[Rfam]
This 71-nucleotide RNA belongs to the Rfam family "GP20-b RNA".

RNA sequence: GGUCCUGAAUAAGACGUAAAAGUGUUCAAAAUAUCAUAAAAGUAAGUGAAGCAACCACGUAUAAAAGCGUA
Numbered sequence: 001g002g003u004c005c006u007g008a009a010u011a012a013g014a015c016g017u018a019a020a021a022g023u024g025u026u027c028a029a030a031a032u033a034u035c036a037u038a039a040a041a042g043u044a045a046g047u048g049a050a051g052c053a054a055c056c057a058c059g060u061a062u063a064a065a066a067g068c069g070u071a
Stems, first nucleotide, its partner, number of pairs: 002015003007027005046058003
It is one of the family's seed sequences.
By type it is a cis-regulatory element.